[Rfam]
RNA sequence: AGUUCAGUCUAAGUAGUAGUGCCGCAGGUAACAAUAACUGAGUUUACCUGCUCUCUACUGCUUAAGUUGAGUA
Numbered sequence: 001a002g003u004u005c006a007g008u009c010u011a012a013g014u015a016g017u018a019g020u021g022c023c024g025c026a027g028g029u030a031a032c033a034a035u036a037a038c039u040g041a042g043u044u045u046a047c048c049u050g051c052u053c054u055c056u057a058c059u060g061c062u063u064a065a066g067u068u069g070a071g072u073a
Stems, first nucleotide, its partner, number of pairs: 002072006010064010024051007
RNA: mir-252 microRNA precursor family
Organism: Enterobius vermicularis